[Rfam]
This 224-nucleotide RNA sequence from Ureibacillus yapensis belongs to the Rfam family "Bacillus sRNA ncr1575".
Nucleotides: 224
Stems, first nucleotide, its partner, number of pairs: 016113004023107004029101003042098003046094002048091002051088003059081009125169001130164001132162003136158003192219011
Number, partner (000 for none) and nucleotide at each position: 001000u002000a003000a004000u005000a006000u007000u008000a009000a010000a011000c012000g013000a014000a015000a016113g017112a018111g019110a020000u021000g022000a023107u024106g025105g026104g027000u028000g029101g030100a031099c032000a033000a034000u035000g036000g037000a038000u039000a040000a041000c042098u043097a044096a045000c046094c047093u048091a049090a050000u051088u052087u053086u054000u055000u056000a057000c058000c059081a060080u061079u062078u063077g064076a065075a066074a067073u068000u069000a070000u071000a072000u073067a074066u075065u076064u077063c078062a079061g080060a081059u082000c083000a084000u085000a086053a087052a088051a089000u090049u091048u092000a093047g094046g095000a096044u097043u098042a099031g100030u101029c102000u103000g104026c105025u106024c107023a108000u109000u110019u111018u112017u113016c114000a115000u116000u117000u118000a119000a120000c121000u122000a123000a124000a125169u126000u127000a128000u129000u130164g131000u132162u133161a134160a135000u136158c137157u138156a139000g140000g141000u142000g143000c144000c145000a146000a147000a148000a149000g150000g151000g152000c153000a154000a155000g156138u157137a158136g159000c160134u161133u162132a163000u164130u165000a166000a167000a168000u169125g170000a171000c172000g173000g174000c175000a176000a177000a178000a179000a180000u181000g182000c183000g184000a185000a186000u187000u188000g189000a190000c191000u192219a193218a194217u195216c196215c197214u198213u199212c200211c201210a202209a203000a204000a205000u206000u207000a208000u209202u210201u211200g212199g213198g214197a215196g216195g217194a218193u219192u220000u221000u222000u223000u224000u

NCBI's taxonomy places the organism under Bacteria, Bacilli, Caryophanales, Caryophanaceae, Ureibacillus. The family's RNA type in Rfam is small RNA. For this family Rfam cites "Identification of regulatory RNAs in Bacillus subtilis" (Irnov et al., Nucleic Acids Res, 2010).